[Rfam]
RNA sequence: GCACGGUGAUGGAUUGAUGGCGGGCCUUUCUCUGGGGGCCUCUCAUAGUGUACCCAUGCCAGGGGAGCGAGCAGCCCUGAACCACUGCCCAGCCUCCUCACUGGUGGGUUGUGAACACUGAAGGGGGCUCAGGGGG
Numbered sequence: 001g002c003a004c005g006g007u008g009a010u011g012g013a014u015u016g017a018u019g020g021c022g023g024g025c026c027u028u029u030c031u032c033u034g035g036g037g038g039c040c041u042c043u044c045a046u047a048g049u050g051u052a053c054c055c056a057u058g059c060c061a062g063g064g065g066a067g068c069g070a071g072c073a074g075c076c077c078u079g080a081a082c083c084a085c086u087g088c089c090c091a092g093c094c095u096c097c098u099c100a101c102u103g104g105u106g107g108g109u110u111g112u113g114a115a116c117a118c119u120g121a122a123g124g125g126g127g128c129u130c131a132g133g134g135g136g
Stems, first nucleotide, its partner, number of pairs: 001059003005054004015048001017046004022041003025037002073129005083120002090111006
RNA: Small nucleolar RNA SNORA42/SNORA80 family
Organism: Odobenus rosmarus